[Rfam]
RNA sequence: AAGAGGAGUCAAUGAUGGUUAUAACCCACAAUGUCUGAACCUAUCUGAAGCAUCUUUGUGAUGUAGUCAUUCUGUCAUUCUGAGACUUCUUUAAGA
Numbered sequence: 001a002a003g004a005g006g007a008g009u010c011a012a013u014g015a016u017g018g019u020u021a022u023a024a025c026c027c028a029c030a031a032u033g034u035c036u037g038a039a040c041c042u043a044u045c046u047g048a049a050g051c052a053u054c055u056u057u058g059u060g061a062u063g064u065a066g067u068c069a070u071u072c073u074g075u076c077a078u079u080c081u082g083a084g085a086c087u088u089c090u091u092u093a094a095g096a
Stems, first nucleotide, its partner, number of pairs: 004090007

Overview
A member of the RNA family "Small nucleolar RNA SNORD91 family" from Cavia porcellus, 96 nucleotides long. The pairing is the family consensus, mapped onto this sequence. Gene Ontology terms of the family: nucleolus and RNA processing. By type it is a C/D-box small nucleolar RNA. A search with the family's covariance model found it, with a score of 88 bits. On this family, see Huttenhofer et al., EMBO J 2001: "RNomics: an experimental approach that identifies 201 candidates for novel, small, non-messenger RNAs in mouse".